[Rfam]
RNA sequence: CAGGAGGCUGGGCUAGCUGUUGGACACUGCUCAAGAUUAUUAUUGUUACUCUUGUGCGUGUGACAGCGGCUAUCUCAGACCUCCUACGCCUCCAU
Numbered sequence: 001c002a003g004g005a006g007g008c009u010g011g012g013c014u015a016g017c018u019g020u021u022g023g024a025c026a027c028u029g030c031u032c033a034a035g036a037u038u039a040u041u042a043u044u045g046u047u048a049c050u051c052u053u054g055u056g057c058g059u060g061u062g063a064c065a066g067c068g069g070c071u072a073u074c075u076c077a078g079a080c081c082u083c084c085u086a087c088g089c090c091u092c093c094a095u
Stems, first nucleotide, its partner, number of pairs: 006080001008078005015071008025060002028058003032054002035051002
The family of this 95-nucleotide sequence from Apolygus lucorum is "mir-210 microRNA precursor family".
The organism belongs to Apolygus, within Eukaryota.
The base pairs follow the family's consensus structure, which was predicted with WAR.